[Rfam]
RNA: IMES-5 RNA
Nucleotides: 147
Stems, first nucleotide, its partner, number of pairs: 001044007014031004050146004056139006069083002071080003089115006095108004116132005
Number, partner (000 for none) and nucleotide at each position: 001044c002043u003042u004041u005040a006039g007038u008000a009000a010000a011000a012000g013000u014031u015030u016029g017028u018000u019000a020000c021000u022000c023000g024000a025000g026000c027000c028017g029016c030015a031014a032000a033000g034000g035000g036000a037000a038007g039006c040005u041004a042003a043002a044001g045000a046000a047000u048000u049000a050146g051145a052144a053143g054000g055000a056139a057138a058137a059136g060135g061134g062000u063000g064000a065000g066000a067000g068000a069083c070082g071080u072079a073078a074000g075000a076000a077000a078073u079072u080071g081000c082070c083069g084000c085000c086000a087000c088000u089115u090114a091113c092112a093111g094110g095108g096107a097106g098105a099000g100000g101000g102000u103000u104000u105098u106097u107096u108095c109000g110094u111093c112092u113091g114090u115089g116132c117131u118130a119129g120128u121000c122000a123000a124000c125000c126000c127000c128120a129119c130118u131117a132116g133000a134061c135060c136059c137058u138057u139056u140000u141000a142000a143053c144052u145051u146050c147000g